[Rfam]
RNA sequence: GCAGCGGUGAUGACUCCAACAUGCCAUCUGAGUCCUCGUGCUGAAAUCCAGAGGCUGUUUCUGAGCUG
Numbered sequence: 001g002c003a004g005c006g007g008u009g010a011u012g013a014c015u016c017c018a019a020c021a022u023g024c025c026a027u028c029u030g031a032g033u034c035c036u037c038g039u040g041c042u043g044a045a046a047u048c049c050a051g052a053g054g055c056u057g058u059u060u061c062u063g064a065g066c067u068g
Base pairs, nucleotide, nucleotide: 005068006067007066008065